[Rfam]
RNA sequence: GCGCUGGGUUAGCUCAGUGGUUACUUCAACCAUAACGAUUACCAGUCCCUCACGGGAUCGAAACCACGGGCGCUGUCCAGUGUUUUC
Numbered sequence: 001g002c003g004c005u006g007g008g009u010u011a012g013c014u015c016a017g018u019g020g021u022u023a024c025u026u027c028a029a030c031c032a033u034a035a036c037g038a039u040u041a042c043c044a045g046u047c048c049c050u051c052a053c054g055g056g057a058u059c060g061a062a063a064c065c066a067c068g069g070g071c072g073c074u075g076u077c078c079a080g081u082g083u084u085u086u087c
Stems, first nucleotide, its partner, number of pairs: 002082006012071004017067004025062003029058001
RNA: Vault RNA